[Rfam]
RNA sequence: AGCUUUGCGCAGUGGCAGUAUUGUAGCCAAUGAGGUUUUUCUGAGGUGUGAUUAUUGCUAAUUGAAAACUUUUCCCAAUACCCCACCACGAUGACUUGCAAUACAGUCGGCACUGGCAAUUUUUGACAGUCUCUAUGGAGA
Numbered sequence: 001a002g003c004u005u006u007g008c009g010c011a012g013u014g015g016c017a018g019u020a021u022u023g024u025a026g027c028c029a030a031u032g033a034g035g036u037u038u039u040u041c042u043g044a045g046g047u048g049u050g051a052u053u054a055u056u057g058c059u060a061a062u063u064g065a066a067a068a069c070u071u072u073u074c075c076c077a078a079u080a081c082c083c084c085a086c087c088a089c090g091a092u093g094a095c096u097u098g099c100a101a102u103a104c105a106g107u108c109g110g111c112a113c114u115g116g117c118a119a120u121u122u123u124u125g126a127c128a129g130u131c132u133c134u135a136u137g138g139a140g141a
Stems, first nucleotide, its partner, number of pairs: 020052005026047003034042002086116002090111001092109005130141004
Overview
A member of the RNA family "U4 spliceosomal RNA" from Callithrix jacchus, 141 nucleotides long. From the family's description: U4 small nuclear RNA (U4 snRNA) is a component of the major U2-dependent spliceosome. By type it is a spliceosomal small nuclear RNA. A search with the family's covariance model found it, with a score of 107 bits. Taxonomically the source falls in Callithrix (Eukaryota, Opisthokonta, Gnathostomata, Euarchontoglires). The family has 177 seed sequences and 32,178 matches in Rfam 15.1.